A member of the RNA family "6A RNA" from Pseudoleptotrichia goodfellowii, 54 nucleotides long.
It is annotated as a small RNA.
The match comes from Rfam's covariance-model search (53 bits).
The organism belongs to Pseudoleptotrichia goodfellowii, within Bacteria.
RNA sequence: AGAUAUGUUCGGAGAGCGAAGCGAACAGUAUAAUCAAAAGAAAGCUCAAAUAGA
Numbered sequence: 001a002g003a004u005a006u007g008u009u010c011g012g013a014g015a016g017c018g019a020a021g022c023g024a025a026c027a028g029u030a031u032a033a034u035c036a037a038a039a040g041a042a043a044g045c046u047c048a049a050a051u052a053g054a
Stems, first nucleotide, its partner, number of pairs: 006027006014047004